[Rfam]
The family of this 95-nucleotide RNA from Prodigiosinella confusarubida is "sraA".
RNA sequence: AGGUAUCGAGUAUAUGGGGAUAAAUAUCUUACAUUCAACGACCAGAAUACGCGUAAAAACGAAUGGGGGGGAUAACCCCCCCCAUUUUAUCGCUU
Numbered sequence: 001a002g003g004u005a006u007c008g009a010g011u012a013u014a015u016g017g018g019g020a021u022a023a024a025u026a027u028c029u030u031a032c033a034u035u036c037a038a039c040g041a042c043c044a045g046a047a048u049a050c051g052c053g054u055a056a057a058a059a060c061g062a063a064u065g066g067g068g069g070g071g072a073u074a075a076c077c078c079c080c081c082c083c084a085u086u087u088u089a090u091c092g093c094u095u
Base pairs, nucleotide, nucleotide: 009035010034011033015031016030017029018028019027062086063085064084065083066082067081068080069079070078071077

A search with the family's covariance model found it, with a score of 69 bits. It is annotated as a small RNA.